[Rfam]
RNA sequence: GUCUGGCAAGGGCAAAGCACGCCGAAAGGCUGCGACGCAAAGCCACCGGCCUACAGUUCGGAUGUACGAAAUAGGGUAGCGGGGCCGCCGGA
Numbered sequence: 001g002u003c004u005g006g007c008a009a010g011g012g013c014a015a016a017g018c019a020c021g022c023c024g025a026a027a028g029g030c031u032g033c034g035a036c037g038c039a040a041a042g043c044c045a046c047c048g049g050c051c052u053a054c055a056g057u058u059c060g061g062a063u064g065u066a067c068g069a070a071a072u073a074g075g076g077u078a079g080c081g082g083g084g085c086c087g088c089c090g091g092a
Stems, first nucleotide, its partner, number of pairs: 012038002017033003021030003042085003046082003049077003057070003
RNA: c-di-GMP-I riboswitch aptamer
Organism: Desulfonatronum sp. SC1